[Rfam]
RNA sequence: UUGCACGGUGAACACCCAAGUGUACUUUAUAGUUCCCUUGGCUUUGACUCUGUGCGAGAGCAAUAUCUGUUCUUCUCCUCUGCAUUGAAAGGAAUAUCCUUUUAAAUGUAUUCAGAAGUUCAGCACAUUU
Numbered sequence: 001u002u003g004c005a006c007g008g009u010g011a012a013c014a015c016c017c018a019a020g021u022g023u024a025c026u027u028u029a030u031a032g033u034u035c036c037c038u039u040g041g042c043u044u045u046g047a048c049u050c051u052g053u054g055c056g057a058g059a060g061c062a063a064u065a066u067c068u069g070u071u072c073u074u075c076u077c078c079u080c081u082g083c084a085u086u087g088a089a090a091g092g093a094a095u096a097u098c099c100u101u102u103u104a105a106a107u108g109u110a111u112u113c114a115g116a117a118g119u120u121c122a123g124c125a126c127a128u129u130u
Stems, first nucleotide, its partner, number of pairs: 003055006010049001013046002016041005022035001024033003057073006079116004083108004087103007